[Rfam]
RNA sequence: CCGGGCGCCUUCUGGGGCUCGGCGAAGACGGGUUCCGGAGGUGUCCGGUGCCUACUCGUACCCAUCUUGCUCAACGGAGGAUUUGGCUAUGAGAA
Dot-bracket structure: ((((((.((.....)))))))).......((((.((((......)))).)))).((((((.(((..((.(((....)))))..))).))))))..
Repression of heat shock gene expression (ROSE) element: a 95-nucleotide RNA from Nitrobacter hamburgensis. For this family Rfam cites "A mRNA-based thermosensor controls expression of rhizobial heat shock genes" (Nocker et al., Nucleic Acids Res, 2001). It scores 79 bits against the family's covariance model. Its family is annotated with regulation of translation and response to temperature stimulus in the Gene Ontology.